[Rfam]
RNA sequence: AAAACAGAUGAAUAUCGCCCUCAUAUAAUUUCGGGGAUACGGCCCGUAAGUCUCUACCUGAUGUCCAUUAAUUCAUCAGACUAUGAGGGAAAGCUUUUUUUCU
Numbered sequence: 001a002a003a004a005c006a007g008a009u010g011a012a013u014a015u016c017g018c019c020c021u022c023a024u025a026u027a028a029u030u031u032c033g034g035g036g037a038u039a040c041g042g043c044c045c046g047u048a049a050g051u052c053u054c055u056a057c058c059u060g061a062u063g064u065c066c067a068u069u070a071a072u073u074c075a076u077c078a079g080a081c082u083a084u085g086a087g088g089g090a091a092a093g094c095u096u097u098u099u100u101u102c103u
Base pairs, nucleotide, nucleotide: 018089019088020087021086022085023084024083025082029049030048032046033045034044035043058079059078060077061076062075063074
Rfam assigns this 103-nucleotide sequence from Fictibacillus aquaticus to the family "Purine riboswitch aptamer". From the family's description: Riboswitches are metabolite binding domains within certain messenger RNAs that serve as precision sensors for their corresponding targets. Allosteric rearrangement of mRNA structure is mediated by ligand binding, and this results in modulation of gene expression. A class of riboswitches that selectively recognises guanine and becomes saturated at concentrations as low as 5 nM. In Bacillus subtilis, this mRNA motif is located on at least five separate transcriptional units that together encode 17 genes that are mostly involved in purine transport and purine nucleotide biosynthesis. It has also been shown that some members of this family are specific for adenine instead. A reference for the family is Mandal et al. (2003), "Riboswitches Control Fundamental Biochemical Pathways in Bacillus subtilis and Other Bacteria", Cell. The family's consensus secondary structure is taken from published work. NCBI's taxonomy places the organism under Bacteria, Bacillati, Bacilli, Caryophanales, Fictibacillus.